RNA sequence: UCCCAGUUAUAAGUAGUAGUGCCGCAGGUAACCGCUUCCAGAAAAUUGGUUUACCUACUGCCUUCUGCUUAGAAUUGGGA
Numbered sequence: 001u002c003c004c005a006g007u008u009a010u011a012a013g014u015a016g017u018a019g020u021g022c023c024g025c026a027g028g029u030a031a032c033c034g035c036u037u038c039c040a041g042a043a044a045a046u047u048g049g050u051u052u053a054c055c056u057a058c059u060g061c062c063u064u065c066u067g068c069u070u071a072g073a074a075u076u077g078g079g080a
Base pairs, nucleotide, nucleotide: 001080002079003078004077005076006075007074010071011070012069013068014067015066016065018063019062024058026056027055028054029053030052

A member of the RNA family "mir-252 microRNA precursor family" from Caenorhabditis briggsae, 80 nucleotides long. The source organism's lineage runs through Eukaryota, Bilateria, Rhabditomorpha, Rhabditidae and Caenorhabditis. The literature on the family includes a 2009 paper in BMC Genomics by Li et al., "Direct sequencing and expression analysis of a large number of miRNAs in Aedes aegypti and a multi-species survey of novel mosquito miRNAs".